Overview:
This 123-nucleotide RNA belongs to the Rfam family "drum RNA". Rfam classes the family as a small RNA. Pairs were carried over by alignment from the consensus structure, which is taken from published work. It is one of the family's seed sequences.

RNA sequence: GAACGUUGAGUCAAGGGAGCGCGCCAAGGAGCGUUGUCUUGAGGAGUUCAGAGGGUAAGGGUUGUACGUUACCUCAACUUGGCUCUAAACCAUGAAAUAUUUGGUUGACAGAAAACGUACAUA
Numbered sequence: 001g002a003a004c005g006u007u008g009a010g011u012c013a014a015g016g017g018a019g020c021g022c023g024c025c026a027a028g029g030a031g032c033g034u035u036g037u038c039u040u041g042a043g044g045a046g047u048u049c050a051g052a053g054g055g056u057a058a059g060g061g062u063u064g065u066a067c068g069u070u071a072c073c074u075c076a077a078c079u080u081g082g083c084u085c086u087a088a089a090c091c092a093u094g095a096a097a098u099a100u101u102u103g104g105u106u107g108a109c110a111g112a113a114a115a116c117g118u119a120c121a122u123a
Base pairs, nucleotide, nucleotide: 001049002048003047004046011042012041013040014039015038016037018035019034020033021032022031024082025081026080027079066118067117068116088106089105090104091103